[Rfam]
Nucleotides: 096
Stems, first nucleotide, its partner, number of pairs: 002095001004093005013043005021032003026084004044076004049072002052067003080088001
Number, partner (000 for none) and nucleotide at each position: 001000a002095c003000c004093c005092c006091a007090u008089c009000c010000c011000g012000a013043g014042c015041g016040g017039c018000c019000g020000a021032g022031a023030g024000a025000u026084c027083u028082g029081g030023u031022u032021c033000u034000a035000u036000g037000a038000c039017g040016c041015c042014g043013c044076a045075g046074c047073a048000a049072c050071c051000u052067u053066c054065c055000a056000c057000a058000c059000u060000c061000c062000g063000g064000u065054g066053g067052a068000c069000a070000a071050g072049g073047u074046g075045c076044u077000a078000c079000c080088g081029c082028c083027a084026g085000a086000a087000a088080c089008g090007a091006u092005g093004g094000a095002g096000a

Shown here is a 96-nucleotide sequence from Arthrobacter sp. MYb227, a member of the family "SAM riboswitch aptamer (S box leader)". A search with the family's covariance model found it, with a score of 58 bits. Taxonomically the source falls in Arthrobacter (Bacteria, Actinomycetota, Actinomycetes, Micrococcales). The family's consensus secondary structure is taken from published work. The SAM riboswitch is found upstream of a number of genes which code for proteins involved in methionine or cysteine biosynthesis in Gram-positive bacteria.